[Rfam]
RNA: pan motif
Organism: Thermoanaerobacterium sp. RBIITD
RNA sequence: AUGAUGGUAUCCAUAUGGAGCCAUACAUAAGCAUUGAAAUUUUAAUAGUUAUGCCUCGCCAGGAUCAUAUGACCGGGACGGGAGA
Numbered sequence: 001a002u003g004a005u006g007g008u009a010u011c012c013a014u015a016u017g018g019a020g021c022c023a024u025a026c027a028u029a030a031g032c033a034u035u036g037a038a039a040u041u042u043u044a045a046u047a048g049u050u051a052u053g054c055c056u057c058g059c060c061a062g063g064a065u066c067a068u069a070u071g072a073c074c075g076g077g078a079c080g081g082g083a084g085a
Base pairs, nucleotide, nucleotide: 001028002027003026004024005023006022007021008020010019011018056081057080058079059077060076062074063073065072066071